[Rfam]
RNA sequence: ACCCCCCGCAAUGGGCAAGGAGACACCUGAUUGAUGGUGUUGCUCUUACAUCAAUCAGGGGCAAAGCAGACGUACAGUCCUUAGUUCAUCCUUGCUUGAUGUUUGUGUCGGUGGCCAGAGCUGCUUUAUGCCUAAGGCACAUAA
Number, nucleotide and partner (000 for none) at each position: 001a000002c000003c061004c060005c059006c058007c000008g056009c000010a000011a000012u053013g052014g051015g000016c000017a000018a047019g046020g045021a000022g041023a040024c039025a038026c037027c036028u000029g000030a000031u000032u000033g000034a000035u000036g027037g026038u025039g024040u023041u022042g000043c000044u000045c020046u019047u018048a000049c000050a000051u014052c013053a012054a000055u000056c008057a000058g006059g005060g004061g003062c000063a000064a000065a000066g000067c000068a000069g000070a000071c000072g000073u000074a000075c000076a000077g000078u000079c000080c000081u000082u000083a000084g138085u137086u136087c000088a000089u000090c000091c000092u000093u000094g000095c000096u000097u000098g132099a000100u130101g000102u000103u000104u128105g127106u000107g000108u000109c123110g122111g000112u120113g000114g000115c000116c000117a000118g000119a000120g112121c000122u110123g109124c000125u000126u000127u105128a104129u000130g100131c000132c098133u000134a000135a000136g086137g085138c084139a000140c000141a000142u000143a000144a000